[Rfam]
Description: The record is a 184-nucleotide sequence from Ruminiclostridium cellulolyticum, which matches "Lysine riboswitch aptamer" in Rfam. A reference for the family is Rodionov et al. (2003), "Regulation of lysine biosynthesis and transport genes in bacteria: yet another RNA riboswitch?", Nucleic Acids Res. Rfam's curators write: Riboswitches are metabolite binding domains within certain messenger RNAs that serve as precision sensors for their corresponding targets.
RNA sequence: AUGUAAGAUAGAGGUGCGUUUUUUAAGAGUAUGGACAAUGAGGAUUCUGGGGCCUAAUGAUUUGUUCUGAAAGGGAAAAACGCCGAAGGCAAUACUGCACCCCCGAGCAACGUAAUGCCUGGUUUCAAGGUCAAUAGCCUUGUGACUGUCAUCAUUUAUUAUGUGGUGGAGCGCUAUCUGUUUA
Numbered sequence: 001a002u003g004u005a006a007g008a009u010a011g012a013g014g015u016g017c018g019u020u021u022u023u024u025a026a027g028a029g030u031a032u033g034g035a036c037a038a039u040g041a042g043g044a045u046u047c048u049g050g051g052g053c054c055u056a057a058u059g060a061u062u063u064g065u066u067c068u069g070a071a072a073g074g075g076a077a078a079a080a081c082g083c084c085g086a087a088g089g090c091a092a093u094a095c096u097g098c099a100c101c102c103c104c105g106a107g108c109a110a111c112g113u114a115a116u117g118c119c120u121g122g123u124u125u126c127a128a129g130g131u132c133a134a135u136a137g138c139c140u141u142g143u144g145a146c147u148g149u150c151a152u153c154a155u156u157u158a159u160u161a162u163g164u165g166g167u168g169g170a171g172c173g174c175u176a177u178c179u180g181u182u183u184a
Base pairs, nucleotide, nucleotide: 006179007178008177009176010175011174016083017082018081019080020079021078022077023076024075033067034066035065036064037063038062087120088119089118090117091116093114094113095112096109097108098107121147122146123145124144126142127141128140129139130138131137149169150168151167152166153165154164155163